[Rfam]
RNA sequence: GAUGGAUCCAAUCCAAUCUAUUAACCAAUUUUUUUAUACUUAUGGAUGGAUUGGAUGGAUCCAUUU
Numbered sequence: 001g002a003u004g005g006a007u008c009c010a011a012u013c014c015a016a017u018c019u020a021u022u023a024a025c026c027a028a029u030u031u032u033u034u035u036a037u038a039c040u041u042a043u044g045g046a047u048g049g050a051u052u053g054g055a056u057g058g059a060u061c062c063a064u065u066u
Stems, first nucleotide, its partner, number of pairs: 004062005011056012028037002
RNA: MIR5291 microRNA precursor family
Organism: Trifolium pratense